The family of this 119-nucleotide RNA sequence from Pelotomaculum thermopropionicum is "Molybdenum/Tungsten riboswitch aptamer (Moco RNA motif)". For this family Rfam cites "Identification of 22 candidate structured RNAs in bacteria using the CMfinder comparative genomics pipeline" (Weinberg et al., Nucleic Acids Res, 2007). It is one of the family's seed sequences.

RNA sequence: AAAAAUCAUACUCUCCGAGCCAGGUAACCUAAAGCUCGACGCCAUGGUACCUGGCCGGCAGGGUGUACCGGGAAACCGGUGUGCCUUCCAUUGCGAAAAGGAGAGCUGGAUUUGGGACC
Dot-bracket structure: ..((.(....((((((..(((((((.(((....((.....))...)))))))))).....(((((((((((....)))))))))))((......))...))))))....).))......